[Rfam]
RNA sequence: CUGACAUCAAUGAUGAAAUGCCUGUAAACUCUAUGAAGGGGAUGGGCAUUUCUGAAAAACUGUUCAG
Numbered sequence: 001c002u003g004a005c006a007u008c009a010a011u012g013a014u015g016a017a018a019u020g021c022c023u024g025u026a027a028a029c030u031c032u033a034u035g036a037a038g039g040g041g042a043u044g045g046g047c048a049u050u051u052c053u054g055a056a057a058a059a060c061u062g063u064u065c066a067g
Base pairs, nucleotide, nucleotide: 001067002066003065004064015052016051017050018049019048020047021046022045023044024043030040031039032038
Rfam assigns this 67-nucleotide RNA from Danio rerio to the family "Selenocysteine insertion sequence 1". The family's RNA type in Rfam is cis-regulatory element. Rfam links the family to the GO term selenocysteine incorporation. Pairs were carried over by alignment from the consensus structure, which is taken from published work. The organism belongs to Danio, within Eukaryota. The incorporation of selenocysteine into a protein sequence is directed by an in-frame UGA codon (usually a stop codon) within the coding region of the mRNA. Selenoprotein mRNAs contain a conserved secondary structure in the 3' UTR that is required for the distinction of UGA stop from UGA selenocysteine. The selenocysteine insertion sequence (SECIS) is around 60 nt in length and adopts a hairpin structure which is sufficiently well-defined and conserved to act as a computational screen for selenoprotein genes.